[Rfam]
RNA: Trypanosomatid snoRNA TB9Cs1H3
RNA sequence: UGCCAACGCACUAUUGCUUCCGCUCUUUCGUGUCGAUGUGCAGCGGGAUCUUGAGGUGCGUGACA
Numbered sequence: 001u002g003c004c005a006a007c008g009c010a011c012u013a014u015u016g017c018u019u020c021c022g023c024u025c026u027u028u029c030g031u032g033u034c035g036a037u038g039u040g041c042a043g044c045g046g047g048a049u050c051u052u053g054a055g056g057u058g059c060g061u062g063a064c065a
Stems, first nucleotide, its partner, number of pairs: 006061007019047004